[Rfam]
Rfam assigns this 59-nucleotide sequence from Kitasatospora sp. Root187 to the family "msiK RNA". It scores 52 bits against the family's covariance model.
RNA sequence: GACAAUCCCACCUUUACUCGGAUCGUCCGGCACGUUCCUGCCGGUGAAGGAGUGUAAAA
Numbered sequence: 001g002a003c004a005a006u007c008c009c010a011c012c013u014u015u016a017c018u019c020g021g022a023u024c025g026u027c028c029g030g031c032a033c034g035u036u037c038c039u040g041c042c043g044g045u046g047a048a049g050g051a052g053u054g055u056a057a058a059a
Stems, first nucleotide, its partner, number of pairs: 011050006027044006